[Rfam]
RNA sequence: UGCUGUUCAUGAUGACUGUUUUAUAACAUUGGGAAUCUCUCUGAAUAAGACUGAAAGACCUCAUUAAUAAACUGAAACAGUA
Numbered sequence: 001u002g003c004u005g006u007u008c009a010u011g012a013u014g015a016c017u018g019u020u021u022u023a024u025a026a027c028a029u030u031g032g033g034a035a036u037c038u039c040u041c042u043g044a045a046u047a048a049g050a051c052u053g054a055a056a057g058a059c060c061u062c063a064u065u066a067a068u069a070a071a072c073u074g075a076a077a078c079a080g081u082a
Base pairs, nucleotide, nucleotide: 001082002081003080004079005078006077007076

The family of this 82-nucleotide RNA sequence from Danio rerio is "Small nucleolar RNA SNORD79". Rfam classes the family as a C/D-box small nucleolar RNA. Rfam's curators write: snoRNA U79 or Z22 is found in intron 7 of the gas5 gene in humans and is also present in mice. The match comes from Rfam's covariance-model search (66 bits). Gene Ontology terms of the family: RNA processing and nucleolus.